Annotation:
Rfam assigns this 84-nucleotide RNA from Aegilops tauschii to the family "Small nucleolar RNA Z102/R77". The family has 9 seed sequences and 1,346 matches in Rfam 15.1. For this family Rfam cites "The high diversity of snoRNAs in plants: identification and comparative study of 120 snoRNA genes from Oryza sativa" (Chen et al., Nucleic Acids Res, 2003). The base pairs follow the family's consensus structure, which was predicted with PFOLD. The family's RNA type in Rfam is C/D-box small nucleolar RNA. The match comes from Rfam's covariance-model search (51 bits).
[Rfam]
RNA sequence: AAGUGAGAUGAUGAAUGAUUUAUUUCCCUAUUGGUUUGAUUGGCCAGCAUAAUGGCCUAUAUACUGAAUCUAGUCUGAUCGUCA
Dot-bracket structure: ..(((....................................((((........))))......................)))..